[Rfam]
RNA sequence: UCAGACACUGUAAACAUCCUACACUCAGCUUUAACAAGUAAAAGCGGCUGGGAGACGGGUGUUUACUCUAACUGG
Numbered sequence: 001u002c003a004g005a006c007a008c009u010g011u012a013a014a015c016a017u018c019c020u021a022c023a024c025u026c027a028g029c030u031u032u033a034a035c036a037a038g039u040a041a042a043a044g045c046g047g048c049u050g051g052g053a054g055a056c057g058g059g060u061g062u063u064u065a066c067u068c069u070a071a072c073u074g075g
Stems, first nucleotide, its partner, number of pairs: 002074003010066010022054001024052007

The family of this 75-nucleotide RNA sequence from Callorhinchus milii is "mir-30 microRNA precursor family".
On this family, see Lagos-Quintana et al., Science 2001: "Identification of novel genes coding for small expressed RNAs".
Rfam links the family to the GO terms RISC complex and gene silencing by miRNA.
Lineage of the source: Eukaryota > Eumetazoa > Gnathostomata > Callorhinchidae > Callorhinchus.
About the family: This family consists of the mammalian microRNA (miRNA) precursor mir-30a. Animal miRNAs are transcribed as ~70nt precursors and subsequently processed by the Dicer enzyme to give a ~22nt product. In this case the mature sequence comes from both the 3' (miR-30) and 5' (mir-97-6) arms of the precursor.